[Rfam]
Group II catalytic intron D1-D4-1: a 97-nucleotide sequence from Oculatella sp. LEGE 06141. Rfam's curators write: Group II introns are found in rRNA, tRNA and mRNA of organelles in fungi, plants and protists, and also in mRNA in bacteria.
RNA sequence: CGUGAGGGAUGGAAACGUCACUCAUCAUUGAGUAAAAGUUAGCAGAAGCCAUAGUAGCCAAACGCUCACCGUAAUGGGUGAGUCUCUGGUGUGGGGC
Numbered sequence: 001c002g003u004g005a006g007g008g009a010u011g012g013a014a015a016c017g018u019c020a021c022u023c024a025u026c027a028u029u030g031a032g033u034a035a036a037a038g039u040u041a042g043c044a045g046a047a048g049c050c051a052u053a054g055u056a057g058c059c060a061a062a063c064g065c066u067c068a069c070c071g072u073a074a075u076g077g078g079u080g081a082g083u084c085u086c087u088g089g090u091g092u093g094g095g096g097c
Stems, first nucleotide, its partner, number of pairs: 002025001004023003008019004039046002048097003057090003
NCBI's taxonomy places the organism under Bacteria, Bacillati, Cyanobacteriota, Oculatellaceae, Oculatella. Pairs were carried over by alignment from the consensus structure. Its family is annotated with Group II intron splicing in the Gene Ontology.